[Rfam]
RNA: Group II catalytic intron D1-D4-5
Organism: Halobacillus karajensis
RNA sequence: CACAACUAAUAUAUCGAAAGUUGGAAUGAAGACCGUCAUGUUGAGUCGAAACAACUUCGUUAAGUCUCCUGCAUGCAUAAUUUAUGAGUAGAUAACUUAUGUGUGAAGCCAGGUGAAGUCGGCUGAACAAGCCUAAGUAGCAGUAUGCUAUAUGGCGUAGGAUAGGCCGGACGGCUGAAAA
Numbered sequence: 001c002a003c004a005a006c007u008a009a010u011a012u013a014u015c016g017a018a019a020g021u022u023g024g025a026a027u028g029a030a031g032a033c034c035g036u037c038a039u040g041u042u043g044a045g046u047c048g049a050a051a052c053a054a055c056u057u058c059g060u061u062a063a064g065u066c067u068c069c070u071g072c073a074u075g076c077a078u079a080a081u082u083u084a085u086g087a088g089u090a091g092a093u094a095a096c097u098u099a100u101g102u103g104u105g106a107a108g109c110c111a112g113g114u115g116a117a118g119u120c121g122g123c124u125g126a127a128c129a130a131g132c133c134u135a136a137g138u139a140g141c142a143g144u145a146u147g148c149u150a151u152a153u154g155g156c157g158u159a160g161g162a163u164a165g166g167c168c169g170g171a172c173g174g175c176u177g178a179a180a181a
Stems, first nucleotide, its partner, number of pairs: 018057006031047003058173004068113004072105009082095004120169005128160001130158001132155001140148002